Small nucleolar RNA SNORA81: a 185-nucleotide RNA sequence from Albula goreensis.

[Rfam]
RNA sequence: CCCUUCUUGCUAAAGCACUCUGCUUGAAUUGUGAGGGCCUACGCCUUUUUUGGCUUAGUUCUCGUGAUAAUGAAAGCCAGAGUACACCCGAGAAGGAGAGAAAUGCACAGCAUCGCAAACGAGACAAGGGUGGACCUCUUUCUUAAUGUCCGGUGUCCUUCGUCUCAAGGUCCUGUGCGACACAA
Numbered sequence: 001c002c003c004u005u006c007u008u009g010c011u012a013a014a015g016c017a018c019u020c021u022g023c024u025u026g027a028a029u030u031g032u033g034a035g036g037g038c039c040u041a042c043g044c045c046u047u048u049u050u051u052g053g054c055u056u057a058g059u060u061c062u063c064g065u066g067a068u069a070a071u072g073a074a075a076g077c078c079a080g081a082g083u084a085c086a087c088c089c090g091a092g093a094a095g096g097a098g099a100g101a102a103a104u105g106c107a108c109a110g111c112a113u114c115g116c117a118a119a120c121g122a123g124a125c126a127a128g129g130g131u132g133g134a135c136c137u138c139u140u141u142c143u144u145a146a147u148g149u150c151c152g153g154u155g156u157c158c159u160u161c162g163u164c165u166c167a168a169g170g171u172c173c174u175g176u177g178c179g180a181c182a183c184a185a
Stems, first nucleotide, its partner, number of pairs: 018082002021079001022077004028071004035062002039058003043054003104179007112171001127156001129154001131152004

The source organism's lineage runs through Eukaryota, Opisthokonta, Chordata, Albulidae and Albula. A search with the family's covariance model found it, with a score of 109 bits. Rfam 15.1 lists 1,161 matches to the family in 643 species. For this family Rfam cites "A novel experimental approach for systematic identification of box H/ACA snoRNAs from eukaryotes" (Gu et al., Nucleic Acids Res, 2005). The family's consensus secondary structure was predicted with WAR.